[Rfam]
RNA sequence: AUACCUUAUUCAGUUUUUUGGUUAAGAUCGAGUGUAGUAUGUGUUAUUAUCAAAUUAAUAUCUAAUAUGUGGAGCAUCGGUUCACACAAUAUUGAAUUUACUUUUUGAAGGGGAAGGCUCACCACAAUAGUUUACUAUUGGAGUCUUCAUGCGUCAUCCAUGUGUUGUACUAAGGCACAGGCCUGGUGCACCCCAC
Numbered sequence: 001a002u003a004c005c006u007u008a009u010u011c012a013g014u015u016u017u018u019u020g021g022u023u024a025a026g027a028u029c030g031a032g033u034g035u036a037g038u039a040u041g042u043g044u045u046a047u048u049a050u051c052a053a054a055u056u057a058a059u060a061u062c063u064a065a066u067a068u069g070u071g072g073a074g075c076a077u078c079g080g081u082u083c084a085c086a087c088a089a090u091a092u093u094g095a096a097u098u099u100a101c102u103u104u105u106u107g108a109a110g111g112g113g114a115a116g117g118c119u120c121a122c123c124a125c126a127a128u129a130g131u132u133u134a135c136u137a138u139u140g141g142a143g144u145c146u147u148c149a150u151g152c153g154u155c156a157u158c159c160a161u162g163u164g165u166u167g168u169a170c171u172a173a174g175g176c177a178c179a180g181g182c183c184u185g186g187u188g189c190a191c192c193c194c195a196c
Stems, first nucleotide, its partner, number of pairs: 007027001009025001012023004048067003052063001069085005075079001113148008127138004151189006158180001161177003

The record is a 196-nucleotide RNA from Cephalotus follicularis, which matches "U2 spliceosomal RNA" in Rfam. From the family's description: U2 is a small nuclear RNA (snRNA) component of the spliceosome (involved in pre-mRNA splicing). Complementary binding between U2 snRNA (in an area lying towards the 5' end but 3' to hairpin I) and the branchpoint sequence (BPS) of the intron results the bulging out of an unpaired adenosine, on the BPS, which initiates a nucleophilic attack at the intronic 5' splice site, thus starting the first of two transesterification reactions that mediate splicing. The organism belongs to Cephalotus, within Eukaryota. The base pairs follow the family's consensus structure, which is taken from published work.